RNA sequence: AUAUACACUGAGUGGCCAGAUUAUUAUGAUCACUGAAAACAUCAGAAUCUGGCCACUCAGUGUAUAU
Numbered sequence: 001a002u003a004u005a006c007a008c009u010g011a012g013u014g015g016c017c018a019g020a021u022u023a024u025u026a027u028g029a030u031c032a033c034u035g036a037a038a039a040c041a042u043c044a045g046a047a048u049c050u051g052g053c054c055a056c057u058c059a060g061u062g063u064a065u066a067u
Stems, first nucleotide, its partner, number of pairs: 004064014019049004024044001026042003
RNA: mir-9256 microRNA precursor family